The record is a 103-nucleotide sequence from Salinarimonas ramus, which matches "rpsB sRNA" in Rfam.
By type it is a small RNA.
NCBI's taxonomy places the organism under Bacteria, Pseudomonadati, Hyphomicrobiales, Salinarimonadaceae, Salinarimonas.
A search with the family's covariance model found it, with a score of 46 bits.
The family has 4 seed sequences and 245 matches in Rfam 15.1.
[Rfam]
RNA sequence: CACACGCGGAGCCAUGUCGUGCCACGAGGGCACGGCGACCCCGGUGCCGGCUGAUCAAGCCGGAACGCGGCUCCGCGGAGGUUCAACCGGAGAGACGAGAUUA
Numbered sequence: 001c002a003c004a005c006g007c008g009g010a011g012c013c014a015u016g017u018c019g020u021g022c023c024a025c026g027a028g029g030g031c032a033c034g035g036c037g038a039c040c041c042c043g044g045u046g047c048c049g050g051c052u053g054a055u056c057a058a059g060c061c062g063g064a065a066c067g068c069g070g071c072u073c074c075g076c077g078g079a080g081g082u083u084c085a086a087c088c089g090g091a092g093a094g095a096c097g098a099g100a101u102u103a
Base pairs, nucleotide, nucleotide: 001080003078005077006076007075008074009073010072012070016039017038018037019036021033047063048062049061050060051059